[Rfam]
RNA: Group II catalytic intron D1-D4-4
RNA sequence: CAGUGGGUGAGAGUCCCACCCGGCAAAGGGUCGCUCCAGCCGGAAGCAGUCGGAGCGGUGAGAGGAGGUAACGAAUUUCGCUGAAACACUCCGAUGACAAAGGGUCGCUUAAGGCGACUCAGCGAGCAUGCAGGCCGUAACGCGA
Numbered sequence: 001c002a003g004u005g006g007g008u009g010a011g012a013g014u015c016c017c018a019c020c021c022g023g024c025a026a027a028g029g030g031u032c033g034c035u036c037c038a039g040c041c042g043g044a045a046g047c048a049g050u051c052g053g054a055g056c057g058g059u060g061a062g063a064g065g066a067g068g069u070a071a072c073g074a075a076u077u078u079c080g081c082u083g084a085a086a087c088a089c090u091c092c093g094a095u096g097a098c099a100a101a102g103g104g105u106c107g108c109u110u111a112a113g114g115c116g117a118c119u120c121a122g123c124g125a126g127c128a129u130g131c132a133g134g135c136c137g138u139a140a141c142g143c144g145a
Base pairs, nucleotide, nucleotide: 020043021042022041023040024039051093052092053091054090055089056083057082058081059080060079061078067072103119104118105117106116107115108114122138123137124136